[Rfam]
RNA sequence: UGAGCCGGCCGGGCGGCCGCGGCGAGGAGACUCGUCGAGGAAGGUCCGGGCUCCACAGGGCAAGGUGGUGGGUAACUCCCACCCGGGGUGACCCGCGGGACAGUGCCACAGAGAACAGACCGCCACCGUGCCUGCACGGUGGUAAGGGUGAAACGGUGGUGUAAGAGACCACCAGCGCUCCGGGCGACCGGAGCGGCUCGGUAAACCCCACCUGGAGCAAGGUCAAGAAGGGAAGCUCGCUUCCCGCGUGAGCGUUCGAGGGCGGCCCGCCCGAGCUCACGGGUAGACCGCACGAGGCUGUCGGCAACGGCAGCCCUAGAUGGAUGGUCGCCGACCGUGGCGCCGCGAGGCGCGCGGAGACAGAACCCGGCCUACAGGCCGGCUCAUCCC
Numbered sequence: 001u002g003a004g005c006c007g008g009c010c011g012g013g014c015g016g017c018c019g020c021g022g023c024g025a026g027g028a029g030a031c032u033c034g035u036c037g038a039g040g041a042a043g044g045u046c047c048g049g050g051c052u053c054c055a056c057a058g059g060g061c062a063a064g065g066u067g068g069u070g071g072g073u074a075a076c077u078c079c080c081a082c083c084c085g086g087g088g089u090g091a092c093c094c095g096c097g098g099g100a101c102a103g104u105g106c107c108a109c110a111g112a113g114a115a116c117a118g119a120c121c122g123c124c125a126c127c128g129u130g131c132c133u134g135c136a137c138g139g140u141g142g143u144a145a146g147g148g149u150g151a152a153a154c155g156g157u158g159g160u161g162u163a164a165g166a167g168a169c170c171a172c173c174a175g176c177g178c179u180c181c182g183g184g185c186g187a188c189c190g191g192a193g194c195g196g197c198u199c200g201g202u203a204a205a206c207c208c209c210a211c212c213u214g215g216a217g218c219a220a221g222g223u224c225a226a227g228a229a230g231g232g233a234a235g236c237u238c239g240c241u242u243c244c245c246g247c248g249u250g251a252g253c254g255u256u257c258g259a260g261g262g263c264g265g266c267c268c269g270c271c272c273g274a275g276c277u278c279a280c281g282g283g284u285a286g287a288c289c290g291c292a293c294g295a296g297g298c299u300g301u302c303g304g305c306a307a308c309g310g311c312a313g314c315c316c317u318a319g320a321u322g323g324a325u326g327g328u329c330g331c332c333g334a335c336c337g338u339g340g341c342g343c344c345g346c347g348a349g350g351c352g353c354g355c356g357g358a359g360a361c362a363g364a365a366c367c368c369g370g371c372c373u374a375c376a377g378g379c380c381g382g383c384u385c386a387u388c389c390c
Stems, first nucleotide, its partner, number of pairs: 001386010011375001012332007020037007042373003046370005051217004058268004063213005068082005083097001084095004098208002103206002105202003120147002122143009155173006175197001176195008221289004231280001234277003260272004296315008
Bacterial RNase P class A: a 390-nucleotide sequence from Nocardioides panacis. By type it is a ribozyme. Rfam describes the family as follows. Ribonuclease P (RNase P) is a ubiquitous endoribonuclease, found in archaea, bacteria and eukarya as well as chloroplasts and mitochondria. Its best characterised activity is the generation of mature 5'-ends of tRNAs by cleaving the 5'-leader elements of precursor-tRNAs. Cellular RNase Ps are ribonucleoproteins. RNA from bacterial RNase Ps retains its catalytic activity in the absence of the protein subunit, i.e. it is a ribozyme. A search with the family's covariance model found it, with a score of 300 bits. The organism belongs to Nocardioides, within Bacteria.